The record is a 163-nucleotide RNA sequence from Olea europaea, which matches "U12 minor spliceosomal RNA" in Rfam. The source organism's lineage runs through Eukaryota, Embryophyta, Tracheophyta, Pentapetalae and Olea europaea. Pairs were carried over by alignment from the consensus structure. Gene Ontology terms of the family: U12 snRNP, pre-mRNA branch point binding and mRNA branch site recognition. Clan: U2 clan.
RNA sequence: CUGCCUUAAACUAAUGAGUAAGGAAAACAAAGCGGGCGGUGAGAGCUGACCGCAGCACCGAUUACUCAAAGAAAUGGUGCAAGAAUUUAUGGAGGGGUUAUAGGCUGGCCGAGCGUUGACGCUGCUUACUUUGCAGAACUCGCUUGAGCGGGCCUCCCAACCC
Numbered sequence: 001c002u003g004c005c006u007u008a009a010a011c012u013a014a015u016g017a018g019u020a021a022g023g024a025a026a027a028c029a030a031a032g033c034g035g036g037c038g039g040u041g042a043g044a045g046c047u048g049a050c051c052g053c054a055g056c057a058c059c060g061a062u063u064a065c066u067c068a069a070a071g072a073a074a075u076g077g078u079g080c081a082a083g084a085a086u087u088u089a090u091g092g093a094g095g096g097g098u099u100a101u102a103g104g105c106u107g108g109c110c111g112a113g114c115g116u117u118g119a120c121g122c123u124g125c126u127u128a129c130u131u132u133g134c135a136g137a138a139c140u141c142g143c144u145u146g147a148g149c150g151g152g153c154c155u156c157c158c159a160a161c162c163c
Stems, first nucleotide, its partner, number of pairs: 004023005032053004037048003055080005095163004102155005108149001110146002113143003122136004